[Rfam]
RNA sequence: GGCAGAGGGAGACCGGCUUCCGUGAGCGCACACCGUGCGCGCAUGAGGAAAGUCCCCCCACCCGCUGGGCGGGUGACCGGGCGCAAGCCCGGGGCGGGAGACCGUCGGCGCUGGAACAGAAACGAGACCCCUCCACCCGACCGAUGAGGCGUGCGAACCCGGACCGACGCGGCGCGAGCCGAUAAGGAAUGGGGAGUUGACCCGCCGAGGGCCGGGCCGUUCCGCGAAGAACGGCCAACGGGCGGGCGGCGGACGCCGCUGGCCCGCCGCGUCGCGCCUUCCGGCGCGACGCAGACGGUGGAGAACGGAUGGAACGGCGAAUCCUCACCGGUGCAAGUCCGUGCCGACAGGUAGCCCGGCACCGCGCGAACGCGCUGGGCACGGACGCUGAGCCGAAUGCCGAGAGAACAGAAGGGGGCUUACUCCCCUCAGCC
Numbered sequence: 001g002g003c004a005g006a007g008g009g010a011g012a013c014c015g016g017c018u019u020c021c022g023u024g025a026g027c028g029c030a031c032a033c034c035g036u037g038c039g040c041g042c043a044u045g046a047g048g049a050a051a052g053u054c055c056c057c058c059c060a061c062c063c064g065c066u067g068g069g070c071g072g073g074u075g076a077c078c079g080g081g082c083g084c085a086a087g088c089c090c091g092g093g094g095c096g097g098g099a100g101a102c103c104g105u106c107g108g109c110g111c112u113g114g115a116a117c118a119g120a121a122a123c124g125a126g127a128c129c130c131c132u133c134c135a136c137c138c139g140a141c142c143g144a145u146g147a148g149g150c151g152u153g154c155g156a157a158c159c160c161g162g163a164c165c166g167a168c169g170c171g172g173c174g175c176g177a178g179c180c181g182a183u184a185a186g187g188a189a190u191g192g193g194g195a196g197u198u199g200a201c202c203c204g205c206c207g208a209g210g211g212c213c214g215g216g217c218c219g220u221u222c223c224g225c226g227a228a229g230a231a232c233g234g235c236c237a238a239c240g241g242g243c244g245g246g247c248g249g250c251g252g253a254c255g256c257c258g259c260u261g262g263c264c265c266g267c268c269g270c271g272u273c274g275c276g277c278c279u280u281c282c283g284g285c286g287c288g289a290c291g292c293a294g295a296c297g298g299u300g301g302a303g304a305a306c307g308g309a310u311g312g313a314a315c316g317g318c319g320a321a322u323c324c325u326c327a328c329c330g331g332u333g334c335a336a337g338u339c340c341g342u343g344c345c346g347a348c349a350g351g352u353a354g355c356c357c358g359g360c361a362c363c364g365c366g367c368g369a370a371c372g373c374g375c376u377g378g379g380c381a382c383g384g385a386c387g388c389u390g391a392g393c394c395g396a397a398u399g400c401c402g403a404g405a406g407a408a409c410a411g412a413a414g415g416g417g418g419c420u421u422a423c424u425c426c427c428c429u430c431a432g433c434c
Base pairs, nucleotide, nucleotide: 001434002433003432005430006429007428008427009426010424011423014402015401016400017399021045022044023043024042050421051420052419054418055417056416057415058414059333060332061331062330072329073328074327075326076325077092078091079090080089081088093106094105095104096103097102107324108323112320114318128308129307131303132302133301134300135299136298137297337386338385339384340383341382342381343380344379345378
Dot-bracket structure: (((.(((((((..[[[[...((((.................))))....(((.(((((((((.........((((((((((......)))))(((((....)))))((...(.(.............((.(((((((...............................................................................................................................................................)))))))...)).........).)..)))))))))))...(((((((((................................)))))))))............]]]]...........)))))))).)).))))).)))
The record is a 434-nucleotide RNA sequence from Halomicrobium mukohataei, which matches "Archaeal RNase P" in Rfam.
Rfam links the family to the GO terms multimeric ribonuclease P complex, tRNA processing and ribonuclease P activity.
The family is grouped with related families in Rfam's "RNaseP clan".
Rfam describes the family as follows. Ribonuclease P (RNase P) is a ubiquitous endoribonuclease, found in archaea, bacteria and eukarya as well as chloroplasts and mitochondria. Its best characterised activity is the generation of mature 5'-ends of tRNAs by cleaving the 5'-leader elements of precursor-tRNAs. Cellular RNase Ps are ribonucleoproteins. RNA from bacterial RNase Ps retains its catalytic activity in the absence of the protein subunit, i.e. it is a ribozyme.